[Rfam]
RNA sequence: AUAUACUCACCGGUUGCUAGGUGGUUAAGAGGAGGCUGGAAUGAGCUUCUUAGUCCUAAUGGGCAACACUGUCAAAGUGAUCGGGAACCACCUGUGAAAUUCUAAGCUACCGCAGCCUCUUCGAAAGAUAGAGGUGCGCACCAGGUUAAUAACCUCGGGGAUGGUAACAAUGCUUAGAUAGGGUGUAUCCGCAGCGAAAUCCUAAGGUAUGUUCAAUACUAUGGAUAGCGUUCACAGACUAGACGGCAGUGGGCUUGUUAUAAUACACAAGAUUAAGAUAUAGUCGAGACCUUUAGAGAAAAAGGG
Numbered sequence: 001a002u003a004u005a006c007u008c009a010c011c012g013g014u015u016g017c018u019a020g021g022u023g024g025u026u027a028a029g030a031g032g033a034g035g036c037u038g039g040a041a042u043g044a045g046c047u048u049c050u051u052a053g054u055c056c057u058a059a060u061g062g063g064c065a066a067c068a069c070u071g072u073c074a075a076a077g078u079g080a081u082c083g084g085g086a087a088c089c090a091c092c093u094g095u096g097a098a099a100u101u102c103u104a105a106g107c108u109a110c111c112g113c114a115g116c117c118u119c120u121u122c123g124a125a126a127g128a129u130a131g132a133g134g135u136g137c138g139c140a141c142c143a144g145g146u147u148a149a150u151a152a153c154c155u156c157g158g159g160g161a162u163g164g165u166a167a168c169a170a171u172g173c174u175u176a177g178a179u180a181g182g183g184u185g186u187a188u189c190c191g192c193a194g195c196g197a198a199a200u201c202c203u204a205a206g207g208u209a210u211g212u213u214c215a216a217u218a219c220u221a222u223g224g225a226u227a228g229c230g231u232u233c234a235c236a237g238a239c240u241a242g243a244c245g246g247c248a249g250u251g252g253g254c255u256u257g258u259u260a261u262a263a264u265a266c267a268c269a270a271g272a273u274u275a276a277g278a279u280a281u282a283g284u285c286g287a288g289a290c291c292u293u294u295a296g297a298g299a300a301a302a303a304g305g306g
Stems, first nucleotide, its partner, number of pairs: 001022002004019002067251005073245001078193002082191004090184004194231002199226004207219004235286001237285005254271005291304004
RNA: Group I catalytic intron
Organism: Rutstroemia sp. NJR-2017a BVV2